[Rfam]
RNA sequence: CCGCUCAUCAAAUGGUUGUGAAAUGGUAUUUUGACUCAUAUCACAGCCAGCUUUGAUGAGCGUUA
Numbered sequence: 001c002c003g004c005u006c007a008u009c010a011a012a013u014g015g016u017u018g019u020g021a022a023a024u025g026g027u028a029u030u031u032u033g034a035c036u037c038a039u040a041u042c043a044c045a046g047c048c049a050g051c052u053u054u055g056a057u058g059a060g061c062g063u064u065a
Stems, first nucleotide, its partner, number of pairs: 005059008013049009024040002
Source information:
A member of the RNA family "mir-2 microRNA precursor family" from Brassicogethes aeneus, 65 nucleotides long. Gene Ontology terms of the family: RISC complex and miRNA-mediated post-transcriptional gene silencing. For this family Rfam cites "An extensive class of small RNAs in Caenorhabditis elegans" (Lee and Ambros, Science, 2001).